[Rfam]
This 92-nucleotide RNA sequence from Neobacillus vireti belongs to the Rfam family "c-di-GMP-I riboswitch aptamer". A search with the family's covariance model found it, with a score of 76 bits. The source organism's lineage runs through Bacteria, Bacillati, Bacillaceae, Neobacillus and Neobacillus vireti.
RNA sequence: AUCAGAAAAAGGCAAACCUGUUGAAAGGCAGGGACGCAAAGCCUAGGGUCUAAGGCAGGUGAAACGCUUGCUAUGAUGGCCGGGAUGCCUGA
Numbered sequence: 001a002u003c004a005g006a007a008a009a010a011g012g013c014a015a016a017c018c019u020g021u022u023g024a025a026a027g028g029c030a031g032g033g034a035c036g037c038a039a040a041g042c043c044u045a046g047g048g049u050c051u052a053a054g055g056c057a058g059g060u061g062a063a064a065c066g067c068u069u070g071c072u073a074u075g076a077u078g079g080c081c082g083g084g085a086u087g088c089c090u091g092a
Base pairs, nucleotide, nucleotide: 012037013036017032018031019030020029021028022027040086042084043083046081047080048077049076050075055071056070057069058068059067060066